This 299-nucleotide sequence from Vigna angularis belongs to the Rfam family "Plant signal recognition particle RNA". It is annotated as a non-coding RNA gene.
[Rfam]
RNA sequence: GCCGAGUUGGGUAACGUCAACUUGUCACUCAAGUGAGGGCAUCAUAGUGGUGGGAUAAUACUCUGAUUUAGCUGGGUUGGGCUUUGAUAGCAAAGUGCUGGCCUGCCCACUCCAAGUUGAGAGCUGGCCCACGGGAUCUGAGCGAAGGCGUAGGUCUCUUGGGUCCUAGAGUGGAGGGCACCGCGUGAGGCUGGUUUCACAGAGCAGCGAAAACCUCCCUCUCCUGACAGUGGAGGGAUAACAGGCUGCUGCAGUCACAGUCACUGUCCUGUGUGCCCAGCUGUCCUGUGUGCCCAGUG
Numbered sequence: 001g002c003c004g005a006g007u008u009g010g011g012u013a014a015c016g017u018c019a020a021c022u023u024g025u026c027a028c029u030c031a032a033g034u035g036a037g038g039g040c041a042u043c044a045u046a047g048u049g050g051u052g053g054g055a056u057a058a059u060a061c062u063c064u065g066a067u068u069u070a071g072c073u074g075g076g077u078u079g080g081g082c083u084u085u086g087a088u089a090g091c092a093a094a095g096u097g098c099u100g101g102c103c104u105g106c107c108c109a110c111u112c113c114a115a116g117u118u119g120a121g122a123g124c125u126g127g128c129c130c131a132c133g134g135g136a137u138c139u140g141a142g143c144g145a146a147g148g149c150g151u152a153g154g155u156c157u158c159u160u161g162g163g164u165c166c167u168a169g170a171g172u173g174g175a176g177g178g179c180a181c182c183g184c185g186u187g188a189g190g191c192u193g194g195u196u197u198c199a200c201a202g203a204g205c206a207g208c209g210a211a212a213a214c215c216u217c218c219c220u221c222u223c224c225u226g227a228c229a230g231u232g233g234a235g236g237g238a239u240a241a242c243a244g245g246c247u248g249c250u251g252c253a254g255u256c257a258c259a260g261u262c263a264c265u266g267u268c269c270u271g272u273g274u275g276c277c278c279a280g281c282u283g284u285c286c287u288g289u290g291u292g293c294c295c296a297g298u299g
Base pairs, nucleotide, nucleotide: 001040002039003038004023005022006021007020008019009018010017028037029036030035045299046298048296049295050294053291055289056288057287058284059283060282061280062279065276068275071272072271074269075268076267077266080262081261082260083259085257086256087255088254090252093250099248100247101246102245103244104243105242107237108236110235111234112233113232114231116228117227118226119225121223122222123221126165127164128163129162130161131160133158134157135156136155137154138153139152140151142149143148166171173218174217175216176215177214184209185208186207191202192201193200
Dot-bracket structure: ((((((((((......)))))))....(((....))))))....((.(((..(.((((((((..(..(..((.((((..((((.((((.(..(.....(((((((.((.(((((.((((.(((..((((((.((((((((.((....)).)))))))).))))))(....).(((((......(((....(((......)))....)))....)))))..))).))))..)))))))....))))))).).).)))).))))...)))).))..))..)).)))..))).)..))).))
A search with the family's covariance model found it, with a score of 203 bits. The base pairs follow the family's consensus structure, which is taken from published work.